Rfam assigns this 54-nucleotide RNA from Nothobranchius furzeri to the family "UnaL2 LINE 3' element". The base pairs follow the family's consensus structure, which is taken from published work.

RNA sequence: GGUUAUAAAAAUUGUACGUCGCUUUGGAUAAAAGCGUCUGCGAAAUGAAUAAAA
Numbered sequence: 001g002g003u004u005a006u007a008a009a010a011a012u013u014g015u016a017c018g019u020c021g022c023u024u025u026g027g028a029u030a031a032a033a034g035c036g037u038c039u040g041c042g043a044a045a046u047g048a049a050u051a052a053a054a
Stems, first nucleotide, its partner, number of pairs: 013043001014041003020036006